The record is a 74-nucleotide RNA sequence from Neogobius melanostomus, which matches "Small nucleolar RNA SNORD47" in Rfam. The match comes from Rfam's covariance-model search (78 bits). Rfam links the family to the GO terms nucleolus and RNA processing. Rfam 15.1 lists 755 matches to the family in 638 species. The family's consensus secondary structure was predicted with ILM. Lineage of the source: Eukaryota > Opisthokonta > Neopterygii > Gobiaria > Neogobius.
RNA sequence: GACCAAUGAUGUCAAGAUUCUGCCAAAUGAAAUCUCAUGAUUAUACUCUUUACCGUUCCAUUUUGUCUGAGGUC
Numbered sequence: 001g002a003c004c005a006a007u008g009a010u011g012u013c014a015a016g017a018u019u020c021u022g023c024c025a026a027a028u029g030a031a032a033u034c035u036c037a038u039g040a041u042u043a044u045a046c047u048c049u050u051u052a053c054c055g056u057u058c059c060a061u062u063u064u065g066u067c068u069g070a071g072g073u074c
Stems, first nucleotide, its partner, number of pairs: 001074004